A member of the RNA family "Group II catalytic intron D1-D4-3" from Marinomonas mediterranea, 165 nucleotides long. The match comes from Rfam's covariance-model search (130 bits). The source organism's lineage runs through Bacteria, Pseudomonadota, Gammaproteobacteria, Oceanospirillales and Marinomonas mediterranea. The base pairs follow the family's consensus structure. From the family's description: Group II introns are found in rRNA, tRNA and mRNA of organelles in fungi, plants and protists, and also in mRNA in bacteria.

RNA sequence: UUGACCGUGAGGUCUAGUCUGGAGGAAGCCGGACGCAAAACUGCGAGCUGAUGAACAAGAGCAUCAUAUGAGGCGUAGGCUGGAGGCGAGUUGGCACAAGACGACGAAGCCAAGUAAUCUAACGGCCACCGUAAAUGAUGCAACAGUGCAGUGAAGGUUCAUGCU
Dot-bracket structure: (.((((....)))).)...........(.((...((...((((((.(.((...........((((((.....(((..(((((..(((..((((........))))...)))...........)))))..)))..)))))))).)..))))))....))...)).)